[Rfam]
RNA sequence: AGGCAGUGCUCCAUGGCAGAUGAUUGAAAUUGUCUAACACAACAUGAACUUGCUAUAGCAAGAAGGUUUAACCUAUUCAGGUGUUUUCUCCCCAUGAGAUCAGCUGUUGCAUAUACUUAAACAGU
Number, nucleotide and partner (000 for none) at each position: 001a000002g000003g000004c000005a000006g000007u000008g000009c000010u047011c046012c000013a000014u039015g038016g000017c000018a035019g034020a033021u032022g031023a000024u000025u000026g000027a000028a000029a000030u000031u022032g021033u020034c019035u018036a000037a000038c015039a014040c000041a000042a000043c000044a000045u000046g011047a010048a000049c000050u000051u000052g000053c000054u000055a000056u000057a000058g000059c000060a000061a000062g000063a000064a118065g117066g116067u115068u000069u113070a112071a000072c000073c000074u111075a000076u109077u000078c000079a000080g105081g104082u103083g000084u000085u000086u000087u099088c098089u097090c096091c000092c000093c000094a000095u000096g090097a089098g088099a087100u000101c000102a000103g082104c081105u080106g000107u000108u000109g076110c000111a074112u070113a069114u000115a067116c066117u065118u064119a000120a000121a000122c000123a000124g000125u000
The family of this 125-nucleotide RNA from Panthera leo is "Small nucleolar RNA SNORA28". On this family, see Huttenhofer et al., EMBO J 2001: "RNomics: an experimental approach that identifies 201 candidates for novel, small, non-messenger RNAs in mouse". ACA28 is a member of the H/ACA class of snoRNA that guide the sites of modification of uridines to pseudouridines. By type it is an H/ACA-box small nucleolar RNA. A search with the family's covariance model found it, with a score of 82 bits. The source organism's lineage runs through Eukaryota, Craniata, Euteleostomi, Theria and Panthera.